MIR9563 microRNA precursor family: a 108-nucleotide RNA sequence from Brassica carinata.
The base pairs follow the family's consensus structure, which was predicted with RNAalifold.
Rfam 15.1 lists 5,832 matches to the family in 9 species.
RNA sequence: GGAAUAUAAGAAACCGUCUCUUAGUUUUUAACUAAAAAAGUUAAGAACCGGCUCUUAAUGGUUCUUAAAUUUUUUAGUUAAAAACUAAGAGAUGGUUUCUUAUAUUCU
Numbered sequence: 001g002g003a004a005u006a007u008a009a010g011a012a013a014c015c016g017u018c019u020c021u022u023a024g025u026u027u028u029u030a031a032c033u034a035a036a037a038a039a040g041u042u043a044a045g046a047a048c049c050g051g052c053u054c055u056u057a058a059u060g061g062u063u064c065u066u067a068a069a070u071u072u073u074u075u076a077g078u079u080a081a082a083a084a085c086u087a088a089g090a091g092a093u094g095g096u097u098u099c100u101u102a103u104a105u106u107c108u
Stems, first nucleotide, its partner, number of pairs: 001108039041068007